RNA sequence: GCGGAGACGUAAGUUUCCGUUCACUCCUCACACCACACUCCGCCUGGAUGAUGUUCGGGCGGUU
Numbered sequence: 001g002c003g004g005a006g007a008c009g010u011a012a013g014u015u016u017c018c019g020u021u022c023a024c025u026c027c028u029c030a031c032a033c034c035a036c037a038c039u040c041c042g043c044c045u046g047g048a049u050g051a052u053g054u055u056c057g058g059g060c061g062g063u064u
Stems, first nucleotide, its partner, number of pairs: 001020008041061009
Shown here is a 64-nucleotide RNA from Synechocystis sp. PCC 6803, a member of the family "Cyanobacterial functional RNA 1". A reference for the family is Voss et al. (2007), "A motif-based search in bacterial genomes identifies the ortholog of the small RNA Yfr1 in all lineages of cyanobacteria", BMC Genomics. By type it is a small RNA. It is one of the family's seed sequences.